[Rfam]
RNA sequence: GUGGGUAGAGGGGUGGUGCCCGGGACUUGUGCCAUGUGGGGACAAAUUUUGAAUCCCCACUCUUGUUCUGAGCACCACCCCUCUCUCAG
Number, nucleotide and partner (000 for none) at each position: 001g000002u088003g087004g086005g085006u000007a000008g083009a082010g081011g080012g079013g078014u077015g076016g075017u000018g073019c072020c000021c070022g069023g068024g067025a066026c065027u000028u000029g000030u000031g000032c000033c000034a000035u000036g060037u059038g058039g000040g056041g055042a054043c000044a000045a000046a000047u000048u000049u000050u000051g000052a000053a000054u042055c041056c040057c000058c038059a037060c036061u000062c000063u000064u000065g026066u025067u024068c023069u022070g021071a000072g019073c018074a000075c016076c015077a014078c013079c012080c011081c010082u009083c008084u000085c005086u004087c003088a002089g000
The record is an 89-nucleotide RNA from Cricetulus griseus, which matches "mir-3547 microRNA precursor family" in Rfam. It scores 78 bits against the family's covariance model. Gene Ontology terms of the family: RISC complex and miRNA-mediated post-transcriptional gene silencing.